[Rfam]
RNA: mir-551 microRNA precursor family
Organism: Platysteira castanea
RNA sequence: UGACCUUGGAAAUCAAGUGUUGGUGGAGCCUGUGGGUGAUUUAAGGCGACCCAUACUUGGUUUCAAGGGUCU
Numbered sequence: 001u002g003a004c005c006u007u008g009g010a011a012a013u014c015a016a017g018u019g020u021u022g023g024u025g026g027a028g029c030c031u032g033u034g035g036g037u038g039a040u041u042u043a044a045g046g047c048g049a050c051c052c053a054u055a056c057u058u059g060g061u062u063u064c065a066a067g068g069g070u071c072u
Stems, first nucleotide, its partner, number of pairs: 002071006009064006016057002022051003028047004